[Rfam]
Notes: The record is a 398-nucleotide sequence from Saccharopolyspora gloriosae, which matches "Bacterial RNase P class A" in Rfam. Ribonuclease P (RNase P) is a ubiquitous endoribonuclease, found in archaea, bacteria and eukarya as well as chloroplasts and mitochondria. On this family, see Frank and Pace, Annu Rev Biochem 1998: "Ribonuclease P: unity and diversity in a tRNA processing ribozyme". Lineage of the source: Bacteria > Actinomycetes > Pseudonocardiales > Pseudonocardiaceae > Saccharopolyspora. It scores 285 bits against the family's covariance model.
RNA sequence: UGAGUCGGCCGGGCGGCCGCGGCACGGGCACCGCCCGCGUCGAGGAAAGUCCGGACUCCACAGGGCAGGGUGGUUGCUAACGGCAACCCGGGGAAACCCGCGGGACAGUGCCACAGAGAACAGACCGCCCGGACGGUUCGCCGACCGGGUAAGGGUGAAACGGUGGUGUAAGAGACCACCAGCGCCCCGGGUGACCGGGGCGGCUAGGUAAACCCCACCCGGAGCAAGGCCAAGAGGACGCCGAUCAGCGUCUGCGCAGGUGUUCGAGGGCUGCCCGCCCGAGCCUGCGGGUAGGCCGCUGGAGCCUGCCGGUGACGGCAGGCCGAGAUGGAUGGUCGCCGAACGGGACGUCGCGAGACGCCCGCGAACAGGAUCCGGCUUACAGGCCGACUCCUCCA
Numbered sequence: 001u002g003a004g005u006c007g008g009c010c011g012g013g014c015g016g017c018c019g020c021g022g023c024a025c026g027g028g029c030a031c032c033g034c035c036c037g038c039g040u041c042g043a044g045g046a047a048a049g050u051c052c053g054g055a056c057u058c059c060a061c062a063g064g065g066c067a068g069g070g071u072g073g074u075u076g077c078u079a080a081c082g083g084c085a086a087c088c089c090g091g092g093g094a095a096a097c098c099c100g101c102g103g104g105a106c107a108g109u110g111c112c113a114c115a116g117a118g119a120a121c122a123g124a125c126c127g128c129c130c131g132g133a134c135g136g137u138u139c140g141c142c143g144a145c146c147g148g149g150u151a152a153g154g155g156u157g158a159a160a161c162g163g164u165g166g167u168g169u170a171a172g173a174g175a176c177c178a179c180c181a182g183c184g185c186c187c188c189g190g191g192u193g194a195c196c197g198g199g200g201c202g203g204c205u206a207g208g209u210a211a212a213c214c215c216c217a218c219c220c221g222g223a224g225c226a227a228g229g230c231c232a233a234g235a236g237g238a239c240g241c242c243g244a245u246c247a248g249c250g251u252c253u254g255c256g257c258a259g260g261u262g263u264u265c266g267a268g269g270g271c272u273g274c275c276c277g278c279c280c281g282a283g284c285c286u287g288c289g290g291g292u293a294g295g296c297c298g299c300u301g302g303a304g305c306c307u308g309c310c311g312g313u314g315a316c317g318g319c320a321g322g323c324c325g326a327g328a329u330g331g332a333u334g335g336u337c338g339c340c341g342a343a344c345g346g347g348a349c350g351u352c353g354c355g356a357g358a359c360g361c362c363c364g365c366g367a368a369c370a371g372g373a374u375c376c377g378g379c380u381u382a383c384a385g386g387c388c389g390a391c392u393c394c395u396c397c398a
Stems, first nucleotide, its partner, number of pairs: 002393009011383001012340007020042004025037004047381003051378005056224004063276004068220005073087005088102001089100004103215002108213002110209003125154002127150006134143002162180006182204001183202008228297004256288006268280004304323008